[Rfam]
RNA sequence: UUGGUUCUGGUUCACGGCCCCGCACCCCGCGAGACGACCCAGCGACC
Numbered sequence: 001u002u003g004g005u006u007c008u009g010g011u012u013c014a015c016g017g018c019c020c021c022g023c024a025c026c027c028c029g030c031g032a033g034a035c036g037a038c039c040c041a042g043c044g045a046c047c
Stems, first nucleotide, its partner, number of pairs: 003047003007042004015036002018033001021031003
The family of this 47-nucleotide RNA sequence from Aeromicrobium yanjiei is "L31-Actinobacteria ribosomal protein leader". Clan: Ribosomal Protein L31 Leader clan. On this family, see Eckert and Weinberg, BMC Microbiol 2020: "Discovery of 20 novel ribosomal leader candidates in bacteria and archaea". It scores 50 bits against the family's covariance model.